Annotation
The record is a 62-nucleotide RNA from Lupinus angustifolius, which matches "Plastid-psbN 5UTR RNA" in Rfam. Pairs were carried over by alignment from the consensus structure, which was predicted with LocARNA. The literature on the family includes a 2023 paper in Plant Commun by Richter et al., "Retrograde signaling in plants: A critical review focusing on the GUN pathway and beyond". By type it is a cis-regulatory element. Rfam's curators write: Plastid psbN is a non-coding RNA (ncRNA) recognised in plastids. It was reported as a conserved 11 stem-loop in the prime untranslated region (5UTR) of psbN genes.
RNA sequence: UGCAACACUCAUCAAAGGAGUAGUUACCUACCCCUGAAGCUACUUUACCAUAUUCUGAAUUC
Numbered sequence: 001u002g003c004a005a006c007a008c009u010c011a012u013c014a015a016a017g018g019a020g021u022a023g024u025u026a027c028c029u030a031c032c033c034c035u036g037a038a039g040c041u042a043c044u045u046u047a048c049c050a051u052a053u054u055c056u057g058a059a060u061u062c
Stems, first nucleotide, its partner, number of pairs: 017046009027036001